[Rfam]
RNA sequence: GAGGCGAUAUCCUUUGGAAGGAAUUGCACUCUGCCGCGAAGUUUGAUUUUGCAUAUACAUGCGAACGAUAAUCAUGAUGGAUUCUGCUCUGAGCCGAAGGGACCGAGACAGAAGG
Numbered sequence: 001g002a003g004g005c006g007a008u009a010u011c012c013u014u015u016g017g018a019a020g021g022a023a024u025u026g027c028a029c030u031c032u033g034c035c036g037c038g039a040a041g042u043u044u045g046a047u048u049u050u051g052c053a054u055a056u057a058c059a060u061g062c063g064a065a066c067g068a069u070a071a072u073c074a075u076g077a078u079g080g081a082u083u084c085u086g087c088u089c090u091g092a093g094c095c096g097a098a099g100g101g102a103c104c105g106a107g108a109c110a111g112a113a114g115g
Stems, first nucleotide, its partner, number of pairs: 001031003004027005010022002084111003087107003091103001094101002
Dot-bracket structure: ((((((((.((.........))))))).)))....................................................((((((.(..((....)).).))).)))....
The record is a 115-nucleotide sequence from Xylanibacillus composti, which matches "pan motif" in Rfam.
A search with the family's covariance model found it, with a score of 44 bits.
Pairs were carried over by alignment from the consensus structure, which is taken from published work.